[Rfam]
Nucleotides: 148
Base pairs, nucleotide, nucleotide: 006143007142008141009140011139012138018054019053020052021051022050025047026046034039058074059073060072061071062070063069064068075101076100078098079097080096081095082094083093084092085091103133104132105130106128107127108126109125110124111123112122113121114120
Number, partner (000 for none) and nucleotide at each position: 001000a002000a003000u004000a005000u006143g007142a008141a009140c010000u011139a012138g013000a014000g015000g016000c017000c018054g019053c020052g021051a022050a023000a024000a025047c026046c027000a028000u029000c030000a031000g032000u033000a034039g035000g036000a037000a038000a039034c040000g041000a042000a043000a044000g045000g046026g047025g048000a049000a050022u051021u052020c053019g054018c055000c056000g057000a058074a059073g060072u061071a062070u063069c064068u065000u066000u067000u068064a069063g070062a071061u072060a073059c074058u075101g076100g077000g078098g079097u080096c081095a082094u083093g084092c085091u086000g087000a088000a089000u090000a091085a092084g093083c094082a095081u096080g097079g098078c099000a100076c101075u102000g103133u104132c105130a106128g107127a108126a109125u110124a111123u112122a113121a114120u115000g116000c117000c118000c119000a120114a121113u122112u123111a124110u125109a126108u127107u128106c129000a130105u131000c132104g133103a134000u135000g136000c137000g138012c139011u140009g141008u142007u143006c144000a145000u146000g147000u148000u
Source information: A member of the RNA family "Lysine riboswitch aptamer" from Jeotgalibaca porci, 148 nucleotides long. The organism belongs to Jeotgalibaca, within Bacteria. Rfam links the family to the GO term lysine biosynthetic process.